The record is a 105-nucleotide RNA sequence from Enterococcus hermanniensis, which matches "trpB ncRNA motif" in Rfam. The organism belongs to Enterococcus, within Bacteria. The base pairs follow the family's consensus structure, which is taken from published work. The literature on the family includes a 2024 paper in Nucleic Acids Res by Narunsky et al., "The discovery of novel noncoding RNAs in 50 bacterial genomes". Rfam's curators write: trpB ncRNA motif was reported as a strong cis regulatory motif candidate, with potential to be a cis regulatory riboswitch type, it have been identified in Firmicutes and Fusobacteria. The motif have been recognised upstream of an uncharacterized ABC transporter with strong homology to amino acid transporters. It is also occasionally located upstream of trpB gene, that codes for a tryptophan synthase. Its family is annotated with regulation of gene expression in the Gene Ontology.
[Rfam]
RNA sequence: CUCAUAGAUACAACGUUUAGACAACUUCUAAAUUUUGUAUCUAUGCUGGGUAUAUUUUUUAUGCUUAUUCCCGCAUAGAGAUCAUCUAUGCGGUUUUUGUUUUUU
Numbered sequence: 001c002u003c004a005u006a007g008a009u010a011c012a013a014c015g016u017u018u019a020g021a022c023a024a025c026u027u028c029u030a031a032a033u034u035u036u037g038u039a040u041c042u043a044u045g046c047u048g049g050g051u052a053u054a055u056u057u058u059u060u061a062u063g064c065u066u067a068u069u070c071c072c073g074c075a076u077a078g079a080g081a082u083c084a085u086c087u088a089u090g091c092g093g094u095u096u097u098u099g100u101u102u103u104u105u
Base pairs, nucleotide, nucleotide: 003045004044005043006042007041008040009039010038011037015033016032017031018030019029020028071093072092073091074090075089076088077087078086079085